[Rfam]
RNA sequence: AGCGAGGUCUCCCACUCGCCCGCCGUCUCGACCAGCGUCUGAUGGCCGAAGAACUCGCCGCCCGCCAGCACGCGCAGCACGGUCUCGUCGCCGUACUCGCCGGUGCCGAUCUCGUUCAGCUUGCCGUGCGCGAUGAGGUAGACGCCGUCGCGGUCCCGCCCGGCCGUCGCGAUGACGUCGCCGGGCUCGUACUCGCGCUGCUCGAACCGGCCGGCGAGCUCGCUCAGCAGGUCCUCGUCGCCCAAGUCGCGCAGCGCCGGCAGCUCGCCGAGCUCGCGCGGGAUGACGCGCACCUGGGCGCCGGUCGUGACGAAGGUGACGCGGCCGUCGCCGACCGCGUAACUGAGCCUGCGGUUGACGCGGUACGCGCCGCCCGCGGCCUGGACCCAGGGCAACGCCCGCAGCAGCCACCGCGAGGAGAUGCCCUGCAUCUGCGGCACGGACUUGGUGGUCGUCGCCAGAUUGCGCGCCGCCGCCGUGCCAAGGCUCAGUUGCUGAUCCGUCACGA
Numbered sequence: 001a002g003c004g005a006g007g008u009c010u011c012c013c014a015c016u017c018g019c020c021c022g023c024c025g026u027c028u029c030g031a032c033c034a035g036c037g038u039c040u041g042a043u044g045g046c047c048g049a050a051g052a053a054c055u056c057g058c059c060g061c062c063c064g065c066c067a068g069c070a071c072g073c074g075c076a077g078c079a080c081g082g083u084c085u086c087g088u089c090g091c092c093g094u095a096c097u098c099g100c101c102g103g104u105g106c107c108g109a110u111c112u113c114g115u116u117c118a119g120c121u122u123g124c125c126g127u128g129c130g131c132g133a134u135g136a137g138g139u140a141g142a143c144g145c146c147g148u149c150g151c152g153g154u155c156c157c158g159c160c161c162g163g164c165c166g167u168c169g170c171g172a173u174g175a176c177g178u179c180g181c182c183g184g185g186c187u188c189g190u191a192c193u194c195g196c197g198c199u200g201c202u203c204g205a206a207c208c209g210g211c212c213g214g215c216g217a218g219c220u221c222g223c224u225c226a227g228c229a230g231g232u233c234c235u236c237g238u239c240g241c242c243c244a245a246g247u248c249g250c251g252c253a254g255c256g257c258c259g260g261c262a263g264c265u266c267g268c269c270g271a272g273c274u275c276g277c278g279c280g281g282g283a284u285g286a287c288g289c290g291c292a293c294c295u296g297g298g299c300g301c302c303g304g305u306c307g308u309g310a311c312g313a314a315g316g317u318g319a320c321g322c323g324g325c326c327g328u329c330g331c332c333g334a335c336c337g338c339g340u341a342a343c344u345g346a347g348c349c350u351g352c353g354g355u356u357g358a359c360g361c362g363g364u365a366c367g368c369g370c371c372g373c374c375c376g377c378g379g380c381c382u383g384g385a386c387c388c389a390g391g392g393c394a395a396c397g398c399c400c401g402c403a404g405c406a407g408c409c410a411c412c413g414c415g416a417g418g419a420g421a422u423g424c425c426c427u428g429c430a431u432c433u434g435c436g437g438c439a440c441g442g443a444c445u446u447g448g449u450g451g452u453c454g455u456c457g458c459c460a461g462a463u464u465g466c467g468c469g470c471c472g473c474c475g476c477c478g479u480g481c482c483a484a485g486g487c488u489c490a491g492u493u494g495c496u497g498a499u500c501c502g503u504c505a506c507g508a
Base pairs, nucleotide, nucleotide: 006387007386008385009384010383011379012378016324018322019321021318022317023316024315026313027312033309034308037305038304039303045299046298047297049295054227055226057224059222060221062108064106065105072100076097077096079094080093081092082091083090114219115218116217117216120213124209126207127206128203130201131200132199135196137194140193141192146189147188153186154185155184156183157180159174163170164169231293232292234290237287238286239285240284242282248278249277250276251275253274254273255272258267259266326339327338328337348376351373352372353371354370359367360366388428389427390426391425392424393423394422396420398418400415401414402413404412434473435472436471437470440467441466443464445461446460447459448458449457474507475506477502478501482497483496484493485492